[Rfam]
The record is a 76-nucleotide RNA from Lachnospiraceae bacterium YSD2013, which matches "c-di-GMP-I riboswitch aptamer" in Rfam.
RNA sequence: UUGUAAAUAGGGCAAAGCGGGCGAAAGCUCGUGACGCAAAGCUAUAGGGACUUUAACAUGUCAGCCAGUUGCAACU
Numbered sequence: 001u002u003g004u005a006a007a008u009a010g011g012g013c014a015a016a017g018c019g020g021g022c023g024a025a026a027g028c029u030c031g032u033g034a035c036g037c038a039a040a041g042c043u044a045u046a047g048g049g050a051c052u053u054u055a056a057c058a059u060g061u062c063a064g065c066c067a068g069u070u071g072c073a074a075c076u
Stems, first nucleotide, its partner, number of pairs: 012037002017032006040070004047066002049062003
The match comes from Rfam's covariance-model search (58 bits).